Shown here is a 115-nucleotide RNA from Sarcina sp. DSM 11001, a member of the family "FMN riboswitch aptamer (RFN element)". Taxonomically the source falls in Sarcina (Bacteria, Bacillota, Clostridia, Eubacteriales). The RFN element is a highly conserved domain that is found frequently in the 5'-untranslated regions of prokaryotic mRNAs that encode for flavin mononucleotide (FMN) biosynthesis and transport proteins.
RNA sequence: CAGAAUCUUCAGGGCAGGGUGAAAGUCCCUACCGGUGGUACAGCCCACGAGCCGCGAGGCAUGAUUCGGUGAAACUCCGAAGCCGACAGUAUAGUCUGGAUGGAAGAAGGUUCCG
Dot-bracket structure: ..((((((((......(((.......))).[[((((((....[[))))....(.....).....(((((.......)))))]])).(((....]]))).......))))))))..